[Rfam]
RNA sequence: CGCUCAGUAAUCAGUGUAGAUCCUGUAUAUCUGUCAGCAGCUACAUCUGGCUACUGGGUCUCUA
Numbered sequence: 001c002g003c004u005c006a007g008u009a010a011u012c013a014g015u016g017u018a019g020a021u022c023c024u025g026u027a028u029a030u031c032u033g034u035c036a037g038c039a040g041c042u043a044c045a046u047c048u049g050g051c052u053a054c055u056g057g058g059u060c061u062c063u064a
Stems, first nucleotide, its partner, number of pairs: 004057006011050003014046006023040004